[Rfam]
RNA sequence: AUAGGUCAGUCGUAGUAACCCCUUUGGGCGAAAUCAGUACCUUUUGCAGAGGGAGGGCUUGUUCCCGGCUACCAAGCCAAAACACCCCGUCCGAUGUAGUCAGCCGGACGCUUCUUGCAUGGUGAGCGAUUGUACGGUAGCUCAUUUCAUGGCUGGUACUACAAGCAGUUAGAACCCGUACCCGACAAUAAGACUGUACGGAGGGGAACCUUCUAUGACAAGUGAA
Numbered sequence: 001a002u003a004g005g006u007c008a009g010u011c012g013u014a015g016u017a018a019c020c021c022c023u024u025u026g027g028g029c030g031a032a033a034u035c036a037g038u039a040c041c042u043u044u045u046g047c048a049g050a051g052g053g054a055g056g057g058c059u060u061g062u063u064c065c066c067g068g069c070u071a072c073c074a075a076g077c078c079a080a081a082a083c084a085c086c087c088c089g090u091c092c093g094a095u096g097u098a099g100u101c102a103g104c105c106g107g108a109c110g111c112u113u114c115u116u117g118c119a120u121g122g123u124g125a126g127c128g129a130u131u132g133u134a135c136g137g138u139a140g141c142u143c144a145u146u147u148c149a150u151g152g153c154u155g156g157u158a159c160u161a162c163a164a165g166c167a168g169u170u171a172g173a174a175c176c177c178g179u180a181c182c183c184g185a186c187a188a189u190a191a192g193a194c195u196g197u198a199c200g201g202a203g204g205g206g207a208a209c210c211u212u213c214u215a216u217g218a219c220a221a222g223u224g225a226a
Stems, first nucleotide, its partner, number of pairs: 004041003019028002067078004086206003090202004095198001096162005101155005110118002121146007165197005172183001

About this RNA:
The family of this 226-nucleotide sequence is "RT-2 RNA". It is annotated as a small RNA. The sequence is in the family's curated seed alignment.